Record summary: glmS glucosamine-6-phosphate activated ribozyme aptamer: a 144-nucleotide RNA sequence from Sharpea azabuensis.
[Rfam]
RNA sequence: UAAUAAAGCAUAGCGCCAGAACUCUUUGAGUUGACGAGGACUAGAUUGAUCGAAAAUUCGGCGGAUAAUCUAGAGGCAUAGUACUGCCUGAGCGAUAAGCAAAAACGAGAAGUGAUUCUCCAACAGAUCUUAUCAGGUACUCAU
Numbered sequence: 001u002a003a004u005a006a007a008g009c010a011u012a013g014c015g016c017c018a019g020a021a022c023u024c025u026u027u028g029a030g031u032u033g034a035c036g037a038g039g040a041c042u043a044g045a046u047u048g049a050u051c052g053a054a055a056a057u058u059c060g061g062c063g064g065a066u067a068a069u070c071u072a073g074a075g076g077c078a079u080a081g082u083a084c085u086g087c088c089u090g091a092g093c094g095a096u097a098a099g100c101a102a103a104a105a106c107g108a109g110a111a112g113u114g115a116u117u118c119u120c121c122a123a124c125a126g127a128u129c130u131u132a133u134c135a136g137g138u139a140c141u142c143a144u
Stems, first nucleotide, its partner, number of pairs: 020032005041073005050061004074089005094134006107120005
Dot-bracket structure: ...................(((((...)))))........(((((....((((....)))).......)))))(((((......)))))....((((((.......(((((....)))))........))))))..........
A search with the family's covariance model found it, with a score of 79 bits. The literature on the family includes a 2006 paper in Nat Struct Mol Biol by Jansen et al., "Backbone and nucleobase contacts to glucosamine-6-phosphate in the glmS ribozyme". The source organism's lineage runs through Bacteria, Bacillati, Bacillota, Coprobacillaceae and Sharpea. The base pairs follow the family's consensus structure, which is taken from published work.